[Rfam]
mir-999 microRNA precursor family: an 81-nucleotide sequence from Ceratitis capitata. The base pairs follow the family's consensus structure, which was predicted with RNAalifold. The match comes from Rfam's covariance-model search (70 bits).
RNA sequence: CUCAAUUACUGGGACAUAGUCAUACAGCAAAUGUUGUGUUAUAAGCCAAUGUUAACUGUAAGACUGUGUCUUGGUGUUGUC
Numbered sequence: 001c002u003c004a005a006u007u008a009c010u011g012g013g014a015c016a017u018a019g020u021c022a023u024a025c026a027g028c029a030a031a032u033g034u035u036g037u038g039u040u041a042u043a044a045g046c047c048a049a050u051g052u053u054a055a056c057u058g059u060a061a062g063a064c065u066g067u068g069u070c071u072u073g074g075u076g077u078u079g080u081c
Stems, first nucleotide, its partner, number of pairs: 003079003007076005013070009023060005030053007